About this RNA: The record is a 67-nucleotide sequence from Bacillus sp. J14TS2, which matches "Bacillaceae-1 RNA" in Rfam. The match comes from Rfam's covariance-model search (74 bits). The organism belongs to Bacillus, within Bacteria. Rfam 15.1 lists 5,721 matches to the family in 247 species.

[Rfam]
RNA sequence: UGAUAAGGAUGAACGACUAAGGGCGCGCCGUCCUGGCGCAACGUCGUUCUGACCAACAUCCUGUUGG
Numbered sequence: 001u002g003a004u005a006a007g008g009a010u011g012a013a014c015g016a017c018u019a020a021g022g023g024c025g026c027g028c029c030g031u032c033c034u035g036g037c038g039c040a041a042c043g044u045c046g047u048u049c050u051g052a053c054c055a056a057c058a059u060c061c062u063g064u065u066g067g
Base pairs, nucleotide, nucleotide: 011049012048013047014046015045016044017043025039026038027037028036029035053067054066055065056064057063